[Rfam]
RNA: LOOT RNA
RNA sequence: GACCUAAAUCUUAAUUUUUUAAGACAUGGUCAAAAUCCUCAGCGAUAAAGAUGGUCUUCUGACCAGUGCUUCAUCGCUGAGGUCUGUAUCCGAAAGGAUGUAGGAUAGUUUCGAAAGGAAUUAUC
Numbered sequence: 001g002a003c004c005u006a007a008a009u010c011u012u013a014a015u016u017u018u019u020u021a022a023g024a025c026a027u028g029g030u031c032a033a034a035a036u037c038c039u040c041a042g043c044g045a046u047a048a049a050g051a052u053g054g055u056c057u058u059c060u061g062a063c064c065a066g067u068g069c070u071u072c073a074u075c076g077c078u079g080a081g082g083u084c085u086g087u088a089u090c091c092g093a094a095a096g097g098a099u100g101u102a103g104g105a106u107a108g109u110u111u112c113g114a115a116a117g118g119a120a121u122u123a124u125c
Stems, first nucleotide, its partner, number of pairs: 001031004009024006037082010050069001052065004084103008104125009